This 98-nucleotide sequence from Clostridium celatum belongs to the Rfam family "Purine riboswitch aptamer". The base pairs follow the family's consensus structure, which is taken from published work.
RNA sequence: AACGCGAAUAAAAAAAGGACUCAUAUAAAUCUCAAAUAUGGUGGGAUGUUUCUACUGGAAACCUUAAAUUUUCAGCUAUGAGUGAGCUUAAUAUAUAU
Numbered sequence: 001a002a003c004g005c006g007a008a009u010a011a012a013a014a015a016a017g018g019a020c021u022c023a024u025a026u027a028a029a030u031c032u033c034a035a036a037u038a039u040g041g042u043g044g045g046a047u048g049u050u051u052c053u054a055c056u057g058g059a060a061a062c063c064u065u066a067a068a069u070u071u072u073c074a075g076c077u078a079u080g081a082g083u084g085a086g087c088u089u090a091a092u093a094u095a096u097a098u
Base pairs, nucleotide, nucleotide: 019083020082021081022080023079024078025077029047030046031045032044033043034042056074057073058072059071060070061069
Dot-bracket structure: ..................(((((((...((((((.......))))))........((((((.......))))))..)))))))...............